[Rfam]
The family of this 80-nucleotide sequence from Vigna angularis is "Small nucleolar RNA U54".
RNA sequence: GGCUCAGUGAUUUUUUUGCUUUGCAGUAUACGCUAUUCCGAUUUAUUACGUGAGCGGAAAUUUAAUCGUGUAUGAGAGCC
Number, nucleotide and partner (000 for none) at each position: 001g080002g079003c078004u077005c076006a000007g000008u000009g000010a000011u000012u000013u000014u000015u000016u000017u000018g000019c000020u000021u000022u000023g000024c000025a000026g000027u000028a000029u000030a000031c000032g000033c000034u000035a000036u000037u000038c000039c000040g000041a000042u000043u000044u000045a000046u000047u000048a000049c000050g000051u000052g000053a000054g000055c000056g000057g000058a000059a000060a000061u000062u000063u000064a000065a000066u000067c000068g000069u000070g000071u000072a000073u000074g000075a000076g005077a004078g003079c002080c001
Overview:
Taxonomically the source falls in Vigna angularis (Eukaryota, Magnoliopsida, eudicotyledons, rosids). Pairs were carried over by alignment from the consensus structure, which was predicted with PFOLD. About the family: U54 is a C/D box small nucleolar RNA, which acts as a methylation guide for 18S ribosomal RNA in plants. It is annotated as a C/D-box small nucleolar RNA. Its Rfam clan is "U54 clan".